[Rfam]
RNA sequence: GUGGCUGUAGUUUAGUGGUAAGAAUAUCACGUUGUGGCCGUGAUGACCUGGGCUCGAAUCCCAGCAGCCACA
Numbered sequence: 001g002u003g004g005c006u007g008u009a010g011u012u013u014a015g016u017g018g019u020a021a022g023a024a025u026a027u028c029a030c031g032u033u034g035u036g037g038c039c040g041u042g043a044u045g046a047c048c049u050g051g052g053c054u055c056g057a058a059u060c061c062c063a064g065c066a067g068c069c070a071c072a
Stems, first nucleotide, its partner, number of pairs: 001071007010025004027043005048064005